[Rfam]
RNA sequence: AAAAAUGAUGAUAAUAAAUUAAGCGCAAAUAAAUCUUUGUCAUACUACUAUGUAGAAUGAUGAUAAAGAAUGUCAUCCUUGAACUGAUUUUUUUAUA
Numbered sequence: 001a002a003a004a005a006u007g008a009u010g011a012u013a014a015u016a017a018a019u020u021a022a023g024c025g026c027a028a029a030u031a032a033a034u035c036u037u038u039g040u041c042a043u044a045c046u047a048c049u050a051u052g053u054a055g056a057a058u059g060a061u062g063a064u065a066a067a068g069a070a071u072g073u074c075a076u077c078c079u080u081g082a083a084c085u086g087a088u089u090u091u092u093u094u095a096u097a
Stems, first nucleotide, its partner, number of pairs: 002094004